[Rfam]
RNA: Iron response element I
RNA sequence: UUGUCUCUUGCUUCAACAAUGUUUGGUUGGAACAG
Numbered sequence: 001u002u003g004u005c006u007c008u009u010g011c012u013u014c015a016a017c018a019a020u021g022u023u024u025g026g027u028u029g030g031a032a033c034a035g
Stems, first nucleotide, its partner, number of pairs: 001035004006031003010028001013026004017021001